[Rfam]
Background: mir-3473 microRNA precursor family: an 87-nucleotide RNA sequence from Urocitellus parryii. The organism belongs to Urocitellus, within Eukaryota. Its family is annotated with RISC complex, cellular response to mechanical stimulus and miRNA-mediated post-transcriptional gene silencing in the Gene Ontology.
RNA sequence: ACCACUGAGCCACAACCCCAGCCCCAUGAAUAUUUAUUUUAAAUAAAGUACUAAAGCUUCAUGGGGCUGGGGUUGUGGCUCAGCGGU
Numbered sequence: 001a002c003c004a005c006u007g008a009g010c011c012a013c014a015a016c017c018c019c020a021g022c023c024c025c026a027u028g029a030a031u032a033u034u035u036a037u038u039u040u041a042a043a044u045a046a047a048g049u050a051c052u053a054a055a056g057c058u059u060c061a062u063g064g065g066g067c068u069g070g071g072g073u074u075g076u077g078g079c080u081c082a083g084c085g086g087u
Base pairs, nucleotide, nucleotide: 002086003085005083006082007081008080009079010078011077012076013075014074015073016072017071018070019069020068021067022066023065024064025063026062027061028060